Xanthine riboswitch aptamer (NMT1 RNA): a 61-nucleotide RNA from Herbaspirillum sp. meg3. A reference for the family is Yu and Breaker (2020), "A bacterial riboswitch class senses xanthine and uric acid to regulate genes associated with purine oxidation", RNA. Taxonomically the source falls in Herbaspirillum (Bacteria, Pseudomonadota, Betaproteobacteria, Burkholderiales). The match comes from Rfam's covariance-model search (56 bits). Rfam links the family to the GO term purine nucleobase binding.
RNA sequence: AAUCUGAGUAGAAGCGGUUAGCGGUCGGACAUUAUCCCGAUCGUGGGACAUUGCUCGUGAA
Numbered sequence: 001a002a003u004c005u006g007a008g009u010a011g012a013a014g015c016g017g018u019u020a021g022c023g024g025u026c027g028g029a030c031a032u033u034a035u036c037c038c039g040a041u042c043g044u045g046g047g048a049c050a051u052u053g054c055u056c057g058u059g060a061a
Base pairs, nucleotide, nucleotide: 005057006056007055008054009053010052015046018048019047021044022043023042024041025040026039027038